A member of the RNA family "SAM/SAH riboswitch aptamer" from Phaeobacter gallaeciensis, 50 nucleotides long.
The organism belongs to Phaeobacter, within Bacteria.
The literature on the family includes a 2019 paper in Nucleic Acids Res by Weickhmann et al., "The structure of the SAM/SAH-binding riboswitch".
[Rfam]
RNA sequence: UUCCUCCCACAACGGCUUCCUGGCGUGGCGAGGCGAAACCAAAUGGAGCA
Numbered sequence: 001u002u003c004c005u006c007c008c009a010c011a012a013c014g015g016c017u018u019c020c021u022g023g024c025g026u027g028g029c030g031a032g033g034c035g036a037a038a039c040c041a042a043a044u045g046g047a048g049c050a
Stems, first nucleotide, its partner, number of pairs: 004032002007028004013022002015049003019046002